A member of the RNA family "mir-124 microRNA precursor family" from Magallana gigas, 71 nucleotides long. Rfam links the family to the GO terms miRNA-mediated post-transcriptional gene silencing and RISC complex. It scores 57 bits against the family's covariance model.
[Rfam]
RNA sequence: ACCUGUUCGUGUUCACCGGGUAGACCUUGAUGGUAUAGAACAAUUAAGGCACGCGGUGAAUGCCAAGGGGG
Numbered sequence: 001a002c003c004u005g006u007u008c009g010u011g012u013u014c015a016c017c018g019g020g021u022a023g024a025c026c027u028u029g030a031u032g033g034u035a036u037a038g039a040a041c042a043a044u045u046a047a048g049g050c051a052c053g054c055g056g057u058g059a060a061u062g063c064c065a066a067g068g069g070g071g
Stems, first nucleotide, its partner, number of pairs: 003069002006066001009063008020054002025049007